[Rfam]
RNA sequence: ACCCGUUCCAAGGGGAGCCCCGCUAGGGGGCUGAGAGAUCGCCGGCCGGAAGGCAACGCGAUGACCCUUCGAACCUGAUCCGGGUCAUGCCGGCGAAGGGAUCGGAACCUGAUGGCGU
Numbered sequence: 001a002c003c004c005g006u007u008c009c010a011a012g013g014g015g016a017g018c019c020c021c022g023c024u025a026g027g028g029g030g031c032u033g034a035g036a037g038a039u040c041g042c043c044g045g046c047c048g049g050a051a052g053g054c055a056a057c058g059c060g061a062u063g064a065c066c067c068u069u070c071g072a073a074c075c076u077g078a079u080c081c082g083g084g085u086c087a088u089g090c091c092g093g094c095g096a097a098g099g100g101a102u103c104g105g106a107a108c109c110u111g112a113u114g115g116c117g118u
Base pairs, nucleotide, nucleotide: 006106007105008104010102011068012067013066014065017031018030019029020028021027038062039061040060041059042058074099075098076097080093081092082091083090
Shown here is a 118-nucleotide RNA sequence from Ancylobacter novellus, a member of the family "TPP riboswitch aptamer (THI element)". It scores 72 bits against the family's covariance model.